[Rfam]
drz-agam-1 ribozyme: a 78-nucleotide RNA sequence from Hermetia illucens.
The match comes from Rfam's covariance-model search (37 bits).
The base pairs follow the family's consensus structure, which is taken from published work.
A reference for the family is Webb et al. (2009), "Widespread occurrence of self-cleaving ribozymes", Science.
Rfam links the family to the GO term catalytic activity.
RNA sequence: UUCUACCAACCCUUUCUCUAUCUCCACGUGGUGAUCGCUGGGAGUUCUUUCUUAAUGGAAAACUGCUGACGGAGAAGG
Numbered sequence: 001u002u003c004u005a006c007c008a009a010c011c012c013u014u015u016c017u018c019u020a021u022c023u024c025c026a027c028g029u030g031g032u033g034a035u036c037g038c039u040g041g042g043a044g045u046u047c048u049u050u051c052u053u054a055a056u057g058g059a060a061a062a063c064u065g066c067u068g069a070c071g072g073a074g075a076a077g078g
Base pairs, nucleotide, nucleotide: 011078012077013076014075015074017072018071020032021031022030043064044063045062046061048059049058051057